A member of the RNA family "T-box leader" from Cytobacillus solani, 218 nucleotides long.
RNA sequence: UUCAAAGCAAUGAGAGGAAAUAGUAACAGGUUAUUCAUUCUUUAGAGAGCCGAUGGCUGGUGGAAAUCGGUGAAUGCUGCUUGUGAAUCCAUCCUCGAGUAAAGUAUGGAAAGCCGCUUUAGGUUAGUAAUUACUUUCGGUUAAAACCGUUAUUAUUUUAAGGUGGAAAGCUUAUGCUUUCAACUAGGGUGGCAACGCGGGUAACUCUCGUCCCUUUU
Numbered sequence: 001u002u003c004a005a006a007g008c009a010a011u012g013a014g015a016g017g018a019a020a021u022a023g024u025a026a027c028a029g030g031u032u033a034u035u036c037a038u039u040c041u042u043u044a045g046a047g048a049g050c051c052g053a054u055g056g057c058u059g060g061u062g063g064a065a066a067u068c069g070g071u072g073a074a075u076g077c078u079g080c081u082u083g084u085g086a087a088u089c090c091a092u093c094c095u096c097g098a099g100u101a102a103a104g105u106a107u108g109g110a111a112a113g114c115c116g117c118u119u120u121a122g123g124u125u126a127g128u129a130a131u132u133a134c135u136u137u138c139g140g141u142u143a144a145a146a147c148c149g150u151u152a153u154u155a156u157u158u159u160a161a162g163g164u165g166g167a168a169a170g171c172u173u174a175u176g177c178u179u180u181c182a183a184c185u186a187g188g189g190u191g192g193c194a195a196c197g198c199g200g201g202u203a204a205c206u207c208u209c210g211u212c213c214c215u216u217u218u
Base pairs, nucleotide, nucleotide: 007100008099015095016094017093018092026084027083028082029081030080031079038074039073040072049071050070051069052068053067054066102136103135104134105133106132138149139148140147166181167180168179169178170177171176186215187214188213189212197211198210199209200208201207
Uncharged tRNA acts as the effector for transcription antitermination of genes in the T-box leader family. T-boxes are found upstream of many aminoacyl-tRNA synthetase genes and some amino acid biosynthetic genes usually in Gram-positive bacteria. The anticodon of a specific tRNA base pairs to a specifier sequence within the T-box motif, and the NCCA acceptor tail of the tRNA base pairs to a conserved bulge in the T-box antiterminator hairpin. Taxonomically the source falls in Cytobacillus (Bacteria, Bacilli, Caryophanales, Bacillaceae).